This 531-nucleotide part of an RNA from Halalkalicoccus jeotgali belongs to the Rfam family "Archaeal large subunit ribosomal RNA".
Rfam 15.1 lists 2,955 matches to the family in 1,139 species.
The source organism's lineage runs through Archaea, Halobacteria, Halalkalicoccaceae, Halalkalicoccus and Halalkalicoccus jeotgali.
The family is grouped with related families in Rfam's "LSU clan".
The sequence is in the family's curated seed alignment.
RNA sequence: CUACUGUGCCAGCUGGUGGAUGGCUCGGCUCGAGUGCCGACGAAGGACGUGCCAAGCUGCGAUAAGCCCUGGGGAGCCGCAUGGAGGUUAAGAACCAGGGAUUUCCGAAUAGGAAUCCUCUCGCAAUUGCCUUGCGCAAUGGGGAACGCCGACAACUGAAACAUCUCAGUAACGGCAGGAAGAGAAACCGAAUGGGAUGUCGUGAGUAACGGCGAGUGAAAGCGACACAGUCCAAACCGAAGCCCUUACGGGCAAUGUGGUGUUCGGGCUGACUCUCAUCGUCGGAUCGUCUGUGUAAAGUCUCCUGGAACGGAGCGCGAUACAGGGUGACAGCCCCGUAACACAGACCAGUACGGCGUGCGUCAGUUCCAGAGUAGCGGGGGUUGGAUAUCCCUCGUCAAUAUGGCCGGCAUCGACGGCCAAGACUAAACACUCCUCGAGACCGAUAGCGAACAAGUAGCGUGAGCGAACGCUGAAAAGCACCCUCAGAAGGGAGGUGCAAUAGGGCCUGAAAUCAGUUGGCGAUUGAGC
Numbered sequence: 001c002u003a004c005u006g007u008g009c010c011a012g013c014u015g016g017u018g019g020a021u022g023g024c025u026c027g028g029c030u031c032g033a034g035u036g037c038c039g040a041c042g043a044a045g046g047a048c049g050u051g052c053c054a055a056g057c058u059g060c061g062a063u064a065a066g067c068c069c070u071g072g073g074g075a076g077c078c079g080c081a082u083g084g085a086g087g088u089u090a091a092g093a094a095c096c097a098g099g100g101a102u103u104u105c106c107g108a109a110u111a112g113g114a115a116u117c118c119u120c121u122c123g124c125a126a127u128u129g130c131c132u133u134g135c136g137c138a139a140u141g142g143g144g145a146a147c148g149c150c151g152a153c154a155a156c157u158g159a160a161a162c163a164u165c166u167c168a169g170u171a172a173c174g175g176c177a178g179g180a181a182g183a184g185a186a187a188c189c190g191a192a193u194g195g196g197a198u199g200u201c202g203u204g205a206g207u208a209a210c211g212g213c214g215a216g217u218g219a220a221a222g223c224g225a226c227a228c229a230g231u232c233c234a235a236a237c238c239g240a241a242g243c244c245c246u247u248a249c250g251g252g253c254a255a256u257g258u259g260g261u262g263u264u265c266g267g268g269c270u271g272a273c274u275c276u277c278a279u280c281g282u283c284g285g286a287u288c289g290u291c292u293g294u295g296u297a298a299a300g301u302c303u304c305c306u307g308g309a310a311c312g313g314a315g316c317g318c319g320a321u322a323c324a325g326g327g328u329g330a331c332a333g334c335c336c337c338g339u340a341a342c343a344c345a346g347a348c349c350a351g352u353a354c355g356g357c358g359u360g361c362g363u364c365a366g367u368u369c370c371a372g373a374g375u376a377g378c379g380g381g382g383g384u385u386g387g388a389u390a391u392c393c394c395u396c397g398u399c400a401a402u403a404u405g406g407c408c409g410g411c412a413u414c415g416a417c418g419g420c421c422a423a424g425a426c427u428a429a430a431c432a433c434u435c436c437u438c439g440a441g442a443c444c445g446a447u448a449g450c451g452a453a454c455a456a457g458u459a460g461c462g463u464g465a466g467c468g469a470a471c472g473c474u475g476a477a478a479a480g481c482a483c484c485c486u487c488a489g490a491a492g493g494g495a496g497g498u499g500c501a502a503u504a505g506g507g508c509c510u511g512a513a514a515u516c517a518g519u520u521g522g523c524g525a526u527u528g529a530g531c
Base pairs, nucleotide, nucleotide: 007524008523009522010521011520012519013518014517015516016515022509023473024472027444028443029441030440031439032438033437034436036433045106046105047104048061049060050059067100068099069098070097071096072095076088077087078086111119112118113117126140127139128138129137130136147178148176149175150174151173158165159164188195189194199226200225201224202223203222209217210216229427230426231425232424237260238259239258242253243252244251245250270365271364272363273362280358281357282356283355294343295342296341300316302315303314304313305312319323325337326336327335377398378397379396380395381394382393383392405421406420407419408418409417460467461466
Dot-bracket structure: ......((((((((((.....(((..((((((((.(........((((((........))).....((((((...(((.......)))......))))))...)))....(((...)))......(((((.....)))))......(((((......((....)).......)))).).........((....))...(((((.....((.....))....)))))..((((....(((..((((....))))....))).........((((......((((..........(((...(.((((......)))))..(...).(((.......)))...)))...........))))...))))...........(((((((........)))))))......(((((.......)))))..)))).....)..)))))).))...............((....))....))...................................).....)))))))))).......